Rfam assigns this 100-nucleotide RNA sequence to the family "Guanidine-I riboswitch aptamer".
[Rfam]
RNA sequence: GAAAUGGAUGACUAGGGUUCCGAUCCGCCCAGGCGGGUGACUGGUCCGAGAGUCAUCGACCUCCGAUGAGGUUACACGGCGGGAUAAAAGCCCGGGAGAA
Numbered sequence: 001g002a003a004a005u006g007g008a009u010g011a012c013u014a015g016g017g018u019u020c021c022g023a024u025c026c027g028c029c030c031a032g033g034c035g036g037g038u039g040a041c042u043g044g045u046c047c048g049a050g051a052g053u054c055a056u057c058g059a060c061c062u063c064c065g066a067u068g069a070g071g072u073u074a075c076a077c078g079g080c081g082g083g084a085u086a087a088a089a090g091c092c093c094g095g096g097a098g099a100a
Stems, first nucleotide, its partner, number of pairs: 007057006015047002020044002022041001023038006058073006075095001077098001081093003

The pairing is the family consensus, mapped onto this sequence. Its family is annotated with regulation of gene expression in the Gene Ontology. From the family's description: This family represents a conserved RNA structure found upstream of the ykkC and yxkD genes in Bacillus subtilis and related genes in other bacteria.